[Rfam]
Shown here is a 97-nucleotide RNA from Hespellia stercorisuis, a member of the family "SAM riboswitch aptamer (S box leader)". A search with the family's covariance model found it, with a score of 68 bits. The organism belongs to Hespellia stercorisuis, within Bacteria.

RNA sequence: CUCUUAUUCAGAGCAGUGGAGAUACAAAGGAUCUGUGAAGCUGCGGCAACCCCGUUAUGGAAGGUGCCAACCUGAGCGAGUAAUCGAGCAAUAAGAG
Number, nucleotide and partner (000 for none) at each position: 001c097002u096003c095004u094005u093006a092007u091008u090009c000010a000011g000012a000013g044014c043015a042016g041017u040018g000019g000020a000021g033022a032023u031024a000025c000026a000027a000028a000029g000030g073031a023032u022033c021034u000035g000036u000037g000038a000039a000040g017041c016042u015043g014044c013045g068046g067047c066048a065049a000050c064051c063052c060053c059054g058055u000056u000057a000058u054059g053060g052061a000062a000063g051064g050065u048066g047067c046068c045069a000070a000071c000072c000073u030074g000075a000076g000077c086078g085079a084080g000081u000082a000083a000084u079085c078086g077087a000088g000089c000090a008091a007092u006093a005094a004095g003096a002097g001